[Rfam]
RNA: TPP riboswitch aptamer (THI element)
RNA sequence: GCCGCUCUAACGGGGUGCCGGGUCGCGGUUUUCGCGGAACGGCUGAGAGGCGCUAAGCCAACCCGCUGAACCUGAUCCGGCUUGUACCGGCGGAGGGAUUAGACGCUUAGCCAAA
Numbered sequence: 001g002c003c004g005c006u007c008u009a010a011c012g013g014g015g016u017g018c019c020g021g022g023u024c025g026c027g028g029u030u031u032u033c034g035c036g037g038a039a040c041g042g043c044u045g046a047g048a049g050g051c052g053c054u055a056a057g058c059c060a061a062c063c064c065g066c067u068g069a070a071c072c073u074g075a076u077c078c079g080g081c082u083u084g085u086a087c088c089g090g091c092g093g094a095g096g097g098a099u100u101a102g103a104c105g106c107u108u109a110g111c112c113a114a115a
Base pairs, nucleotide, nucleotide: 006103007102008101009100010099011065012064013063014062017043018042019041020040052058053057071096072095073094077090078089079088080087